[Rfam]
RNA sequence: ACUCUAGUAUUGACCUCAAUCCACAUGUAUUGAUGUGGAUUGGGGUGUAAAUUAGUUUAAGUUACAUCCCAAUCCACCUCAAUACAAGUGGAUUGAGGUCAAUACUAGA
Numbered sequence: 001a002c003u004c005u006a007g008u009a010u011u012g013a014c015c016u017c018a019a020u021c022c023a024c025a026u027g028u029a030u031u032g033a034u035g036u037g038g039a040u041u042g043g044g045g046u047g048u049a050a051a052u053u054a055g056u057u058u059a060a061g062u063u064a065c066a067u068c069c070c071a072a073u074c075c076a077c078c079u080c081a082a083u084a085c086a087a088g089u090g091g092a093u094u095g096a097g098g099u100c101a102a103u104a105c106u107a108g109a
Stems, first nucleotide, its partner, number of pairs: 004108011016096009026086007035077009045067003
Dot-bracket structure: ...(((((((((((.(((((((((.(((((((..(((((((((.(((.................))).)))))))))..))))))).))))))))).))))))))))).
RNA: MIR5565 microRNA precursor family